[Rfam]
RNA sequence: GGUGUAAAGGGCAGGUAGGCGGCCUGGUAAGUGAGAGGUGAAAUCCUGCGGUUCAAUCGCAGAACUGCCUUUCAAACUGUCGGGCUUGAGUGUGACAGAGGAAAAUGGAAUUCUCGGUGUAAGGGUGAAAUCUGUAGAUAUCGGGAAGAACACCAACGGCGAAGGCAAUUUUCUGGGUCACAACUGACGCUGAGCUGCGAAAGCUAGGGGAGCAAACAGAAUUAGAUACUCUGGUAGUCCUAGCUGUAAACGAUGAGUACUAGGUGUUGGUCCCUUCGGGGAUCGGUGCCGAAGCUAACGCAUUAAGUACUCCACCUGGGGACUACGGUCGCAAGGCUAAAACUCAAAGGAAU
Dot-bracket structure: (((.....(.((((.(.(((.(((((((.(((((((((((.....((((((.....))))))...)))))))))..)))))))))...((((((((...((((((((...((((((((...(((......)))......))))))))...).......((....)).)))))))..))))).)))...))))..))))....((((((...((...((((.........))))...))))))))..........((((((..((((((((((((....))))))))))))...((....)).....)))))))))).(((......((((....))))....)))........
About this RNA:
A member of the RNA family "Bacterial small subunit ribosomal RNA" from an uncultured bacterium, 353 nucleotides of a longer RNA. A reference for the family is Cannone et al. (2002), "The comparative RNA web (CRW) site: an online database of comparative sequence and structure information for ribosomal, intron, and other RNAs", BMC Bioinformatics.